Rfam assigns this 46-nucleotide RNA sequence from Methylosinus sp. 3S-1 to the family "ctRNA". Pairs were carried over by alignment from the consensus structure, which is taken from published work. The source organism's lineage runs through Bacteria, Pseudomonadati, Hyphomicrobiales, Methylocystaceae and Methylosinus.

[Rfam]
RNA sequence: AGAAGGGCUUCCGAGGCGUUACGUUUCGGGGGCCUUUUUCUUUUGC
Number, nucleotide and partner (000 for none) at each position: 001a000002g000003a000004a000005g035006g034007g033008c032009u031010u030011c029012c028013g000014a000015g025016g024017c023018g022019u000020u000021a000022c018023g017024u016025u015026u000027c000028g012029g011030g010031g009032g008033c007034c006035u005036u000037u000038u000039u000040c000041u000042u000043u000044u000045g000046c000